[Rfam]
RNA sequence: AAGCGUUCUCAGGGCAGGGUGCAAUUCCCUACCGGCGGUCAUGGUGGAAGGCGACUUCCGCACGAGCCCGCGAGCGCCCGCCGCCGCAGCCUUCGGACCGCGGUGGCGGGGUCAGCAGAUUUCGGUGCGAUUCCGAAGCCGACGGUCACAGUCCGGAUGAAAGAGAGCGCGA
Numbered sequence: 001a002a003g004c005g006u007u008c009u010c011a012g013g014g015c016a017g018g019g020u021g022c023a024a025u026u027c028c029c030u031a032c033c034g035g036c037g038g039u040c041a042u043g044g045u046g047g048a049a050g051g052c053g054a055c056u057u058c059c060g061c062a063c064g065a066g067c068c069c070g071c072g073a074g075c076g077c078c079c080g081c082c083g084c085c086g087c088a089g090c091c092u093u094c095g096g097a098c099c100g101c102g103g104u105g106g107c108g109g110g111g112u113c114a115g116c117a118g119a120u121u122u123c124g125g126u127g128c129g130a131u132u133c134c135g136a137a138g139c140c141g142a143c144g145g146u147c148a149c150a151g152u153c154c155g156g157a158u159g160a161a162a163g164a165g166a167g168c169g170c171g172a
Base pairs, nucleotide, nucleotide: 003170004169005168006167007166008165009164010163017029018028019027031152032151033141034140035071036070037069038068066139067138074116075115121137122136123135124134125133143155144154145153
Rfam assigns this 172-nucleotide RNA sequence from Pseudacidovorax intermedius to the family "FMN riboswitch aptamer (RFN element)". The RFN element is a highly conserved domain that is found frequently in the 5'-untranslated regions of prokaryotic mRNAs that encode for flavin mononucleotide (FMN) biosynthesis and transport proteins. Pairs were carried over by alignment from the consensus structure, which is taken from published work. Taxonomically the source falls in Pseudacidovorax (Bacteria, Pseudomonadota, Burkholderiales, Comamonadaceae). It scores 101 bits against the family's covariance model.